About this RNA:
The family of this 116-nucleotide sequence from Acetatifactor muris is "c-di-GMP-I riboswitch aptamer". GEMM was predicted in a large-scale screen for bacterial structured RNA regulatory elements. Genes associated with GEMM are involved in a diverse array of functions, including chemotaxis regulation, signal transduction, secretion and chitin. A search with the family's covariance model found it, with a score of 65 bits. The family's consensus secondary structure is taken from published work. The organism belongs to Acetatifactor, within Bacteria.
[Rfam]
RNA sequence: UAAUUUAAUUAGCAAACCGUCGGAAACGGCGGGACGCAAAGCCAUGGGGACUAAAGGUAGCAGGGAAGUGUUCGACAGAAGGCUUUCUAUAUACUUAUGUCAGCCCGGCUGCUAAU
Numbered sequence: 001u002a003a004u005u006u007a008a009u010u011a012g013c014a015a016a017c018c019g020u021c022g023g024a025a026a027c028g029g030c031g032g033g034a035c036g037c038a039a040a041g042c043c044a045u046g047g048g049g050a051c052u053a054a055a056g057g058u059a060g061c062a063g064g065g066a067a068g069u070g071u072u073c074g075a076c077a078g079a080a081g082g083c084u085u086u087c088u089a090u091a092u093a094c095u096u097a098u099g100u101c102a103g104c105c106c107g108g109c110u111g112c113u114a115a116u
Stems, first nucleotide, its partner, number of pairs: 012037002017032006040110004046106003049101003056095004